[Rfam]
RNA sequence: AUCUUAUCCUGAGCUGGUGGAGGGACAGGCCCUAGGAAACCCAGCAACCGUCAUCCAAAUGAUGAAAUGGUGCUAACCUGAUGCAAGGCUAUGGCCUUGAACGAUAAGAG
Numbered sequence: 001a002u003c004u005u006a007u008c009c010u011g012a013g014c015u016g017g018u019g020g021a022g023g024g025a026c027a028g029g030c031c032c033u034a035g036g037a038a039a040c041c042c043a044g045c046a047a048c049c050g051u052c053a054u055c056c057a058a059a060u061g062a063u064g065a066a067a068u069g070g071u072g073c074u075a076a077c078c079u080g081a082u083g084c085a086a087g088g089c090u091a092u093g094g095c096c097u098u099g100a101a102c103g104a105u106a107a108g109a110g
Base pairs, nucleotide, nucleotide: 002109003108004107005106006105007104008103013042016041017040018039022032023031024030026083027082029079043074044073045072046071048070049069051065052064053063084099085098086097087096088095089094